RNA sequence: GGGGUAGUUCCGGAAUUCGACAGGUUAUUACAAGCAUGGAUUGCGUUCCCGUUUGUCGGGUUAAAGACUGCAGAUAUAACUGCAAAAAAUAAUGAACCAUCUUACGCAUUAGCUGCCUAAUCGCAGUAGCGUAGCCCUUUGUUGAGUCCACGGCAACAUUCUCGGCCUAAUUAGUGGAUUAGCUGCUGGCAUUUAUGUUCGGAAUAAAAGCAGUGAAACAAGAAUCGAACUAGCUCUCGAUUUGGAAGUUAGCAACCUAAUCUUGAGCGAAAUUACUUGUUAACUAUGAGCGUAGAUAUUUAUGUGAUUGGAUAAUUUGGACAUGGGUUCGACUCCCAUCUACUCCAUAU
Dot-bracket structure: (((((((.............(((((((((....((((((((..((((((.(....).)..................................................(((.((((......)))))))....[[[...[[[[[.((((((..]]]]].....]]].......)))))).....[[[...[[[...((((((]]]...]]].............))))))..((((..((((.((..[[[[..[[)).))))..))))........]]..]]]]...))))).....)))))))).....)))))))))...(((((.......))))))))))))....